RNA: Actinobacteria sRNA Ms_IGR-7
RNA sequence: UGGAAGCGCUCACAAAACAGGGACGAAAGUAGAAAAAACAUAGACGACACGGCGCUAUGUUUUUUCUACUUUCGUCCCUGUUUUGUGAGCGCUUCCACUUUUAAGAUGAACAGCUACCAACUAG
Numbered sequence: 001u002g003g004a005a006g007c008g009c010u011c012a013c014a015a016a017a018c019a020g021g022g023a024c025g026a027a028a029g030u031a032g033a034a035a036a037a038a039c040a041u042a043g044a045c046g047a048c049a050c051g052g053c054g055c056u057a058u059g060u061u062u063u064u065u066c067u068a069c070u071u072u073c074g075u076c077c078c079u080g081u082u083u084u085g086u087g088a089g090c091g092c093u094u095c096c097a098c099u100u101u102u103a104a105g106a107u108g109a110a111c112a113g114c115u116a117c118c119a120a121c122u123a124g
Stems, first nucleotide, its partner, number of pairs: 002096015018080005024074004029069001031067013